[Rfam]
RNA sequence: CGCGCAGUCCUUGGGGAGUAGUUACCCUCAGUUUUGAGGGGCCUUCAUCAACACACUUGGCCUUCUGGCCAUGGUGGAGGCAGCGUUUUGCAAAAAACGCC
Number, nucleotide and partner (000 for none) at each position: 001c000002g000003c000004g000005c000006a000007g000008u000009c000010c000011u000012u000013g000014g000015g000016g000017a000018g000019u000020a000021g000022u000023u000024a000025c000026c039027c038028u037029c000030a000031g000032u000033u000034u000035u000036g000037a028038g027039g026040g000041g081042c080043c079044u078045u077046c076047a075048u074049c073050a072051a000052c000053a000054c000055a000056c000057u000058u071059g070060g069061c068062c067063u000064u000065c000066u000067g062068g061069c060070c059071a058072u050073g049074g048075u047076g046077g045078a044079g043080g042081c041082a000083g000084c000085g000086u000087u000088u000089u000090g000091c000092a000093a000094a000095a000096a000097a000098c000099g000100c000101c000

The family of this 101-nucleotide sequence from Acetobacter sp. DsW_54 is "Manganese Mn2+ riboswitch aptamer (yybP-ykoY)". Pairs were carried over by alignment from the consensus structure. The organism belongs to Acetobacter, within Bacteria.